[Rfam]
MIR8024 microRNA precursor family: an 86-nucleotide RNA from Solanum commersonii. The match comes from Rfam's covariance-model search (91 bits).
RNA sequence: UUGGAGAUUUUGAAGAUUUCAACUUGCAUAUUCGAAGGAUUUGAAGACUUCAACUUGUAUACUUGGAAGAUUUGAAGACUUUAACU
Dot-bracket structure: ((((((..((((((..(((((...((((...(.((((..........)))).)..))))....)))))..))))))..))))))..
Lineage of the source: Eukaryota > Embryophyta > Euphyllophyta > eudicotyledons > Solanum. Rfam links the family to the GO terms RISC complex and miRNA-mediated post-transcriptional gene silencing. The family's consensus secondary structure was predicted with RNAalifold.